RNA sequence: AUUGUGCAGUGAAGAUACAAUAUGUGGACUAGAGUUUCUGAUCUGGGAAUCUUCACCCAGAAAUUGAUUAUCAAACCCUUGGCUGUCUGAGCACGCAU
Numbered sequence: 001a002u003u004g005u006g007c008a009g010u011g012a013a014g015a016u017a018c019a020a021u022a023u024g025u026g027g028a029c030u031a032g033a034g035u036u037u038c039u040g041a042u043c044u045g046g047g048a049a050u051c052u053u054c055a056c057c058c059a060g061a062a063a064u065u066g067a068u069u070a071u072c073a074a075a076c077c078c079u080u081g082g083c084u085g086u087c088u089g090a091g092c093a094c095g096c097a098u
Stems, first nucleotide, its partner, number of pairs: 003095005037067002042062001043060005
This 98-nucleotide sequence from Medicago truncatula belongs to the Rfam family "Small nucleolar RNA Z157/R69/R10".
It is annotated as a C/D-box small nucleolar RNA.
The family's consensus secondary structure was predicted with PFOLD.
The family is grouped with related families in Rfam's "SNORD52 clan".